[Rfam]
RNA: ylbH leader
RNA sequence: AGCAAAAAAUAGGCGCCCUUCAUGAAGAAGAGCGCCUUGCCAUGAUUUUCACAUGGCUAUGGGAGAGGAGAAACCGGAGGAAGAGCUUAUGGGGAAACGUAAGCCUUCUCCGCGG
Dot-bracket structure: ..........((((((.((((.....)))).))))))(((((((.......)))))).....)...........((((.((((.(((((..........)))))))))))))...
Numbered sequence: 001a002g003c004a005a006a007a008a009a010u011a012g013g014c015g016c017c018c019u020u021c022a023u024g025a026a027g028a029a030g031a032g033c034g035c036c037u038u039g040c041c042a043u044g045a046u047u048u049u050c051a052c053a054u055g056g057c058u059a060u061g062g063g064a065g066a067g068g069a070g071a072a073a074c075c076g077g078a079g080g081a082a083g084a085g086c087u088u089a090u091g092g093g094g095a096a097a098c099g100u101a102a103g104c105c106u107u108c109u110c111c112g113c114g115g
Stems, first nucleotide, its partner, number of pairs: 011037006018030004038063001039057006075112004080108004085104005